Description:
Shown here is a 146-nucleotide RNA, a member of the family "mir-166 microRNA precursor family". From the family's description: This family represents the plant microRNA (miRNA) precursor mir-166. Rfam 15.1 lists 2,599 matches to the family in 229 species.
RNA sequence: GUUGUGGGGAAUGUUGUUUGGAUCGAGGAUAUCAUAAACGCAUACACAUGUUUAUAUGUUAUGAUGCAUUAUAUGACUGAUGUAAUGUACAUAUAUAUACAUACAUGCCACAUGGUAUCGUCGGACCAGGCUUCAUCCCCCUCAAC
Numbered sequence: 001g002u003u004g005u006g007g008g009g010a011a012u013g014u015u016g017u018u019u020g021g022a023u024c025g026a027g028g029a030u031a032u033c034a035u036a037a038a039c040g041c042a043u044a045c046a047c048a049u050g051u052u053u054a055u056a057u058g059u060u061a062u063g064a065u066g067c068a069u070u071a072u073a074u075g076a077c078u079g080a081u082g083u084a085a086u087g088u089a090c091a092u093a094u095a096u097a098u099a100c101a102u103a104c105a106u107g108c109c110a111c112a113u114g115g116u117a118u119c120g121u122c123g124g125a126c127c128a129g130g131c132u133u134c135a136u137c138c139c140c141c142u143c144a145a146c
Stems, first nucleotide, its partner, number of pairs: 001146004006141004011136003016131006024123003
Its family is annotated with miRNA-mediated post-transcriptional gene silencing and RISC complex in the Gene Ontology.
The family's consensus secondary structure was predicted with PFOLD.